[Rfam]
Nucleotides: 134
Base pairs, nucleotide, nucleotide: 002052003051004050005049019047020046021045022044025041027039028038078121079120088110089109090108091107092106093105
Number, partner (000 for none) and nucleotide at each position: 001000c002052u003051g004050c005049a006000g007000u008000c009000a010000g011000u012000u013000a014000a015000g016000c017000u018000g019047a020046c021045u022044g023000g024000g025041u026000u027039c028038c029000c030000u031000g032000c033000u034000g035000g036000u037000g038028g039027g040000u041025g042000c043000c044022c045021a046020g047019u048000g049005u050004g051003u052002a053000g054000u055000g056000g057000c058000u059000g060000c061000a062000c063000a064000c065000a066000g067000u068000a069000a070000c071000c072000u073000c074000c075000u076000c077000a078121g079120u080000a081000g082000u083000g084000u085000a086000u087000g088110c089109a090108g091107c092106c093105u094000g095000u096000u097000g098000c099000u100000u101000g102000u103000a104000u105093a106092g107091g108090c109089u110088g111000c112000c113000c114000u115000a116000a117000g118000g119000g120079a121078c122000c123000u124000u125000g126000g127000a128000g129000a130000c131000a132000c133000u134000c